[Rfam]
RNA: Archaeal RNase P
RNA sequence: GGAAGCCCGGUUCCCGUGAGCGGGGCGGCGUCGCCGCCCUGCCCAUGAGGAAAGUCCCCCCACCCUCCGGGCAGGUGACCGGGCGCAAGCCCGGGGCGGGAGACCGCCGGCGCUGGAACAGAAACGGGACCACCCGCCCCGACCGAUGAGACGCGUUCGGCCGUCAAAACGGCCGGCGGCGUUCGCGGGGUCACCCCGCGAACGCGCGAACCGACCCGCAAGGGAAGGGAGUUAACCCGUCGAGGGCUGGGCGGUCGUCAUCGACGACCGCCACGCGAGCGGCGUCAGCCGCGAGCCGACGGGCGGGAACGGAUGGAACGGCGAACCCUCACCGGUGCAAGCCCGUCGCCACUGGUAGCCCGGAGACGCGGCGGGCGCUCAGCCGAAUGCCGGGCCGAACAGAAGGGGGCUUACUCUCC
Numbered sequence: 001g002g003a004a005g006c007c008c009g010g011u012u013c014c015c016g017u018g019a020g021c022g023g024g025g026c027g028g029c030g031u032c033g034c035c036g037c038c039c040u041g042c043c044c045a046u047g048a049g050g051a052a053a054g055u056c057c058c059c060c061c062a063c064c065c066u067c068c069g070g071g072c073a074g075g076u077g078a079c080c081g082g083g084c085g086c087a088a089g090c091c092c093g094g095g096g097c098g099g100g101a102g103a104c105c106g107c108c109g110g111c112g113c114u115g116g117a118a119c120a121g122a123a124a125c126g127g128g129a130c131c132a133c134c135c136g137c138c139c140c141g142a143c144c145g146a147u148g149a150g151a152c153g154c155g156u157u158c159g160g161c162c163g164u165c166a167a168a169a170c171g172g173c174c175g176g177c178g179g180c181g182u183u184c185g186c187g188g189g190g191u192c193a194c195c196c197c198g199c200g201a202a203c204g205c206g207c208g209a210a211c212c213g214a215c216c217c218g219c220a221a222g223g224g225a226a227g228g229g230a231g232u233u234a235a236c237c238c239g240u241c242g243a244g245g246g247c248u249g250g251g252c253g254g255u256c257g258u259c260a261u262c263g264a265c266g267a268c269c270g271c272c273a274c275g276c277g278a279g280c281g282g283c284g285u286c287a288g289c290c291g292c293g294a295g296c297c298g299a300c301g302g303g304c305g306g307g308a309a310c311g312g313a314u315g316g317a318a319c320g321g322c323g324a325a326c327c328c329u330c331a332c333c334g335g336u337g338c339a340a341g342c343c344c345g346u347c348g349c350c351a352c353u354g355g356u357a358g359c360c361c362g363g364a365g366a367c368g369c370g371g372c373g374g375g376c377g378c379u380c381a382g383c384c385g386a387a388u389g390c391c392g393g394g395c396c397g398a399a400c401a402g403a404a405g406g407g408g409g410c411u412u413a414c415u416c417u418c419c
Stems, first nucleotide, its partner, number of pairs: 001419003004415002006394006015047004052412003056409005061337004066364006074333005079094005095108005109328002114324001116322001130312002133307007341376009